[Rfam]
Background: Shown here is a 68-nucleotide RNA sequence from Carlito syrichta, a member of the family "MAT2A 3'UTR stem loop E".
RNA sequence: CUAGCACUGCCAGGUAGACCGAGGUGUCCUACAGAAAAACUUUGGGCUUGAACUACUGGGGGGUCUGA
Numbered sequence: 001c002u003a004g005c006a007c008u009g010c011c012a013g014g015u016a017g018a019c020c021g022a023g024g025u026g027u028c029c030u031a032c033a034g035a036a037a038a039a040c041u042u043u044g045g046g047c048u049u050g051a052a053c054u055a056c057u058g059g060g061g062g063g064u065c066u067g068a
Stems, first nucleotide, its partner, number of pairs: 002067003006064003010060002014056004019045007026032002
Dot-bracket structure: .(((.(((.((..((((.(((((((((...))......))))))).......))))..)).)))))).
The family has 28 seed sequences and 337 matches in Rfam 15.1. It scores 58 bits against the family's covariance model. Pairs were carried over by alignment from the consensus structure, which is taken from published work.